[Rfam]
RNA sequence: GGAAAUUUGAGAGGAGCUGUCCUUAGUACGAGAGGACCGGGAUGGACAUACCGCUGGUGUACCAGUUGUUCUGCCAAGGGCAUAGCUGGGUAGCUACGUAUGGAUGAGAUAAACGCUGAAAGCAUCUAAGUGUGAAACUCGCCUCGAGAUGAGAUUUCCCAUUCGAAAGAAGUAAGACCCCUUAGAGAAGAUGAGGUAGAUAGGCUAGAAGUGGCAGCGCUGUGAAGUGUGAAGCGGACUAGUACUAAUAGGUCGAGG
Numbered sequence: 001g002g003a004a005a006u007u008u009g010a011g012a013g014g015a016g017c018u019g020u021c022c023u024u025a026g027u028a029c030g031a032g033a034g035g036a037c038c039g040g041g042a043u044g045g046a047c048a049u050a051c052c053g054c055u056g057g058u059g060u061a062c063c064a065g066u067u068g069u070u071c072u073g074c075c076a077a078g079g080g081c082a083u084a085g086c087u088g089g090g091u092a093g094c095u096a097c098g099u100a101u102g103g104a105u106g107a108g109a110u111a112a113a114c115g116c117u118g119a120a121a122g123c124a125u126c127u128a129a130g131u132g133u134g135a136a137a138c139u140c141g142c143c144u145c146g147a148g149a150u151g152a153g154a155u156u157u158c159c160c161a162u163u164c165g166a167a168a169g170a171a172g173u174a175a176g177a178c179c180c181c182u183u184a185g186a187g188a189a190g191a192u193g194a195g196g197u198a199g200a201u202a203g204g205c206u207a208g209a210a211g212u213g214g215c216a217g218c219g220c221u222g223u224g225a226a227g228u229g230u231g232a233a234g235c236g237g238a239c240u241a242g243u244a245c246u247a248a249u250a251g252g253u254c255g256a257g258g
Base pairs, nucleotide, nucleotide: 001159002158003157004156005155006154007153008152011145012144013143014142017045018044019043020042021041022040023039047102048101049100050099051098055096056095057094062089063088064087065086066085067082068081069080070079071078072077106140107139108138113133114132115131116130117129162171163170164169173256176254177253178252179251180196181195182194183193184192201247202246203245204243205242206241207240208239211235217230218229219228220227221226

Description: Rfam assigns this 258-nucleotide part of an RNA from Leuconostoc fallax to the family "Bacterial large subunit ribosomal RNA". Lineage of the source: Bacteria > Bacillati > Lactobacillales > Lactobacillaceae > Leuconostoc. The family has 102 seed sequences and 51,934 matches in Rfam 15.1. It scores 2893 bits against the family's covariance model.